[Rfam]
RNA sequence: UGUUUAUCGGAAGCAGAGACUUCCAUAACCA
Numbered sequence: 001u002g003u004u005u006a007u008c009g010g011a012a013g014c015a016g017a018g019a020c021u022u023c024c025a026u027a028a029c030c031a
Base pairs, nucleotide, nucleotide: 001031002030004028005027006026007025009024010023011022012021013020014018